[Rfam]
RNA sequence: CGGGUUUCUCCUGCUUAGGUUAAGUUCAUCGGGCUUGCGCCGGAUGGGUUUUGGUGCUUUGCACCAUCUGCGCAGGCCGGAUAAGUCAAUCAUCCGUUUAAGGCUUCGCCGCCUGCGGUCUUGGACGGCUCCCGCAAGCAGGAACCCCAAUUCUUUGCCAGAGCGCUCUGGCGA
Numbered sequence: 001c002g003g004g005u006u007u008c009u010c011c012u013g014c015u016u017a018g019g020u021u022a023a024g025u026u027c028a029u030c031g032g033g034c035u036u037g038c039g040c041c042g043g044a045u046g047g048g049u050u051u052u053g054g055u056g057c058u059u060u061g062c063a064c065c066a067u068c069u070g071c072g073c074a075g076g077c078c079g080g081a082u083a084a085g086u087c088a089a090u091c092a093u094c095c096g097u098u099u100a101a102g103g104c105u106u107c108g109c110c111g112c113c114u115g116c117g118g119u120c121u122u123g124g125a126c127g128g129c130u131c132c133c134g135c136a137a138g139c140a141g142g143a144a145c146c147c148c149a150a151u152u153c154u155u156u157g158c159c160a161g162a163g164c165g166c167u168c169u170g171g172c173g174a
Base pairs, nucleotide, nucleotide: 002147003146004145005144006143007142015137016136027046028045029044030043032041033040034039052066053065054064055063056062057061070135071134072133075130076129077128078127096126097125098124099123100122101121102120103119104118105117156173157172158171159170160169161168
This 174-nucleotide sequence from Ventosimonas gracilis belongs to the Rfam family "Pseudomonas sRNA P27". The family's RNA type in Rfam is small RNA. Lineage of the source: Bacteria > Pseudomonadati > Gammaproteobacteria > Ventosimonadaceae > Ventosimonas. Pairs were carried over by alignment from the consensus structure, which was predicted with WAR. On this family, see Livny et al., Nucleic Acids Res 2006: "Identification of 17 Pseudomonas aeruginosa sRNAs and prediction of sRNA-encoding genes in 10 diverse pathogens using the bioinformatic tool sRNAPredict2".